[Rfam]
RNA sequence: GAGCUAUGACGAAUGCAUGAAUUUGCUUCUGACACCUCUUAUGUUAGCGGCCAAUUUCCGGGUCGCAAUGAUUCGUCCACAGUUUUCUGAGCUC
Numbered sequence: 001g002a003g004c005u006a007u008g009a010c011g012a013a014u015g016c017a018u019g020a021a022u023u024u025g026c027u028u029c030u031g032a033c034a035c036c037u038c039u040u041a042u043g044u045u046a047g048c049g050g051c052c053a054a055u056u057u058c059c060g061g062g063u064c065g066c067a068a069u070g071a072u073u074c075g076u077c078c079a080c081a082g083u084u085u086u087c088u089g090a091g092c093u094c
Stems, first nucleotide, its partner, number of pairs: 001094004
RNA: Small nucleolar RNA sn2903